[Rfam]
RNA sequence: GCCGAGGUAGCCUAGCCCGGCCAAGGCGGUUGCCUCGAGAGCAACUGUCCGUCAGGACUCGGGAGUUCAAAUCUCCCCCUCGGCG
Numbered sequence: 001g002c003c004g005a006g007g008u009a010g011c012c013u014a015g016c017c018c019g020g021c022c023a024a025g026g027c028g029g030u031u032g033c034c035u036c037g038a039g040a041g042c043a044a045c046u047g048u049c050c051g052u053c054a055g056g057a058c059u060c061g062g063g064a065g066u067u068c069a070a071a072u073c074u075c076c077c078c079c080u081c082g083g084c085g
Stems, first nucleotide, its partner, number of pairs: 001084007010027004029045005061077005
The family of this 85-nucleotide RNA sequence from Halalkaliarchaeum desulfuricum is "tRNA". By type it is a transfer RNA. The source organism's lineage runs through Archaea, Methanobacteriati, Halobacteriales, Haloferacaceae and Halalkaliarchaeum. Rfam links the family to the GO term triplet codon-amino acid adaptor activity. A search with the family's covariance model found it, with a score of 55 bits. Pairs were carried over by alignment from the consensus structure, which is taken from published work.